[Rfam]
The record is a 47-nucleotide sequence from Trichomalopsis sarcophagae, which matches "Histone 3' UTR stem-loop" in Rfam. The match comes from Rfam's covariance-model search (35 bits). Pairs were carried over by alignment from the consensus structure, which is taken from published work.

RNA sequence: UAAUCGGCCCUUUUCAGGGCCACCAAAUAUUUCAAACGUACUGGAAU
Numbered sequence: 001u002a003a004u005c006g007g008c009c010c011u012u013u014u015c016a017g018g019g020c021c022a023c024c025a026a027a028u029a030u031u032u033c034a035a036a037c038g039u040a041c042u043g044g045a046a047u
Base pairs, nucleotide, nucleotide: 006021007020008019009018010017011016
Overview: From the family's description: The mRNAs of metazoan histone genes lack a poly-A tail. 3' end processing occurs at a site between a highly conserved stem-loop (modelled by this family) and a purine rich region around 20 nts downstream (the histone downstream element, or HDE). A reference for the family is Dominski and Marzluff (1999), "Formation of the 3' end of histone mRNA", Gene.